[Rfam]
RNA sequence: GACGGUCGGUCGUCGCGCUCUCCCGUCCCUCGAAGCGGCGGUCGGCCCGGAUGGAACGACACGCCCAUCGGCGGCGCGCCACCCCCAACCCGGUGGCGCGCC
Numbered sequence: 001g002a003c004g005g006u007c008g009g010u011c012g013u014c015g016c017g018c019u020c021u022c023c024c025g026u027c028c029c030u031c032g033a034a035g036c037g038g039c040g041g042u043c044g045g046c047c048c049g050g051a052u053g054g055a056a057c058g059a060c061a062c063g064c065c066c067a068u069c070g071g072c073g074g075c076g077c078g079c080c081a082c083c084c085c086c087a088a089c090c091c092g093g094u095g096g097c098g099c100g101c102c
Stems, first nucleotide, its partner, number of pairs: 004047013073102011
Rfam assigns this 102-nucleotide RNA from Phenylobacterium soli to the family "caulobacter sRNA CC1840". Rfam classes the family as a small RNA. The pairing is the family consensus, mapped onto this sequence. On this family, see Landt et al., Mol Microbiol 2008: "Small non-coding RNAs in Caulobacter crescentus".